[Rfam]
RNA sequence: GCUUUCUGAUUUGUGUAGAGGCUGAAAAUCUCGGAGAGCGUGUGUUGUCAUCAGCUUCGUCUCUGUUACUGUGAGAUGGGGGUUAAAUAACAGCACAAGAUUU
Numbered sequence: 001g002c003u004u005u006c007u008g009a010u011u012u013g014u015g016u017a018g019a020g021g022c023u024g025a026a027a028a029u030c031u032c033g034g035a036g037a038g039c040g041u042g043u044g045u046u047g048u049c050a051u052c053a054g055c056u057u058c059g060u061c062u063c064u065g066u067u068a069c070u071g072u073g074a075g076a077u078g079g080g081g082g083u084u085a086a087a088u089a090a091c092a093g094c095a096c097a098a099g100a101u102u103u
Stems, first nucleotide, its partner, number of pairs: 041097007053084006060076004